[Rfam]
This 85-nucleotide sequence from Homo sapiens belongs to the Rfam family "mir-4436 microRNA precursor family". The family has 2 seed sequences and 72 matches in Rfam 15.1. Taxonomically the source falls in Homo (Eukaryota, Metazoa, Eutheria, Boreoeutheria). It is one of the family's seed sequences.
RNA sequence: GCCUCACUUUUCCACUUAUGCCUGCCCUGCCCCUCGAAUCUGCUCCACGAUUUGGGCAGGACAGGCAGAAGUGGAUAAGUGAGGA
Numbered sequence: 001g002c003c004u005c006a007c008u009u010u011u012c013c014a015c016u017u018a019u020g021c022c023u024g025c026c027c028u029g030c031c032c033c034u035c036g037a038a039u040c041u042g043c044u045c046c047a048c049g050a051u052u053u054g055g056g057c058a059g060g061a062c063a064g065g066c067a068g069a070a071g072u073g074g075a076u077a078a079g080u081g082a083g084g085a
Stems, first nucleotide, its partner, number of pairs: 002084008011075007019067001021065004026060007036045002